[Rfam]
RNA sequence: AACUAAUUAUACGACUGACGGAAGUGGAAUAGACCACAGGGAGUAUAAGGUGUUGGAGGCCGACCGUCUGGGCAUAGGAG
Numbered sequence: 001a002a003c004u005a006a007u008u009a010u011a012c013g014a015c016u017g018a019c020g021g022a023a024g025u026g027g028a029a030u031a032g033a034c035c036a037c038a039g040g041g042a043g044u045a046u047a048a049g050g051u052g053u054u055g056g057a058g059g060c061c062g063a064c065c066g067u068c069u070g071g072g073c074a075u076a077g078g079a080g
Base pairs, nucleotide, nucleotide: 003052007048008047009046010045011044012043015040016039017068018067019066020065021064024037025036026035027034057075059073060072061071